Description
A member of the RNA family "MIR168 microRNA precursor family" from Spirodela intermedia, 155 nucleotides long. The family has 10 seed sequences and 518 matches in Rfam 15.1. Gene Ontology terms of the family: RISC complex and miRNA-mediated post-transcriptional gene silencing. NCBI's taxonomy places the organism under Eukaryota, Viridiplantae, Tracheophyta, Liliopsida, Spirodela. The match comes from Rfam's covariance-model search (85 bits). The literature on the family includes a 2005 paper in Plant Cell by Lu et al., "Novel and mechanical stress-responsive MicroRNAs in Populus trichocarpa that are absent from Arabidopsis".

RNA sequence: GCCGCGGCCGUCUCUAACUCGCUUGGUGCAGGUCGGGAACGGGUGCCUCCGCGGUCGAUCAUGGCCGCCCCCCCCUGCUAGAACAGGGGGUGGGAGACAAUCCCGGGAGAUCCCGCUCCCGCCUUGCAUCAACUGAAUUGGAGGCGGAGGCGGUC
Numbered sequence: 001g002c003c004g005c006g007g008c009c010g011u012c013u014c015u016a017a018c019u020c021g022c023u024u025g026g027u028g029c030a031g032g033u034c035g036g037g038a039a040c041g042g043g044u045g046c047c048u049c050c051g052c053g054g055u056c057g058a059u060c061a062u063g064g065c066c067g068c069c070c071c072c073c074c075c076u077g078c079u080a081g082a083a084c085a086g087g088g089g090g091u092g093g094g095a096g097a098c099a100a101u102c103c104c105g106g107g108a109g110a111u112c113c114c115g116c117u118c119c120c121g122c123c124u125u126g127c128a129u130c131a132a133c134u135g136a137a138u139u140g141g142a143g144g145c146g147g148a149g150g151c152g153g154u155c
Stems, first nucleotide, its partner, number of pairs: 013142002017138001019136002023132010034121005040115004